A member of the RNA family "Bacterial small signal recognition particle RNA" from Tropheryma whipplei, 89 nucleotides long. Taxonomically the source falls in Tropheryma whipplei (Bacteria, Bacillati, Actinomycetota, Tropheryma). It is one of the family's seed sequences. It is annotated as a non-coding RNA gene. Pairs were carried over by alignment from the consensus structure, which is taken from published work. From the family's description: The signal recognition particle (SRP) is a universally conserved ribonucleoprotein involved in the co-translational targeting of proteins to membranes.
[Rfam]
RNA sequence: GCCUCCGCGCGGCGUUACCCGGGUGAACUCCCCCAGGUUAGGAAUAAAGCAAGGGUAGCUCGGCUCUGGCGGGUGUGCGGGGGUCUUGC
Numbered sequence: 001g002c003c004u005c006c007g008c009g010c011g012g013c014g015u016u017a018c019c020c021g022g023g024u025g026a027a028c029u030c031c032c033c034c035a036g037g038u039u040a041g042g043a044a045u046a047a048a049g050c051a052a053g054g055g056u057a058g059c060u061c062g063g064c065u066c067u068g069g070c071g072g073g074u075g076u077g078c079g080g081g082g083g084u085c086u087u088g089c
Base pairs, nucleotide, nucleotide: 004081005080006079007078008077009076010073013071014070015069016068017067019063020062021061022060023059024058030055031054032053038047039046040045